[Rfam]
RNA sequence: GGUUACGGAGCAGAGCUCCUUGAAGUCCAAUAGAAGGUCUUGCUGGGUGGAUUGAGCUGCUGAGCUAUGGAUCCCACAGCCCUAUCUCAGAUCAUCCGAGGAAUAGGCUUGUGGCUUGCAUAUCUCAGGAGCUGCAUUACCUGUGUUAGAUCUUUGUUUGGAUUGAAGGGAGCUCUACACCUUUCUCUC
Numbered sequence: 001g002g003u004u005a006c007g008g009a010g011c012a013g014a015g016c017u018c019c020u021u022g023a024a025g026u027c028c029a030a031u032a033g034a035a036g037g038u039c040u041u042g043c044u045g046g047g048u049g050g051a052u053u054g055a056g057c058u059g060c061u062g063a064g065c066u067a068u069g070g071a072u073c074c075c076a077c078a079g080c081c082c083u084a085u086c087u088c089a090g091a092u093c094a095u096c097c098g099a100g101g102a103a104u105a106g107g108c109u110u111g112u113g114g115c116u117u118g119c120a121u122a123u124c125u126c127a128g129g130a131g132c133u134g135c136a137u138u139a140c141c142u143g144u145g146u147u148a149g150a151u152c153u154u155u156g157u158u159u160g161g162a163u164u165g166a167a168g169g170g171a172g173c174u175c176u177a178c179a180c181c182u183u184u185c186u187c188u189c
Base pairs, nucleotide, nucleotide: 013175014174015173016172017171018170019169020168024164025163026162027161028160029159036152057131058130060128061127062126066122067121068120069119074114
The record is a 189-nucleotide RNA from Prunus dulcis, which matches "MIR159 microRNA precursor family" in Rfam. The match comes from Rfam's covariance-model search (124 bits). Taxonomically the source falls in Prunus (Eukaryota, Magnoliopsida, fabids, Rosales). The base pairs follow the family's consensus structure, which was predicted with WAR.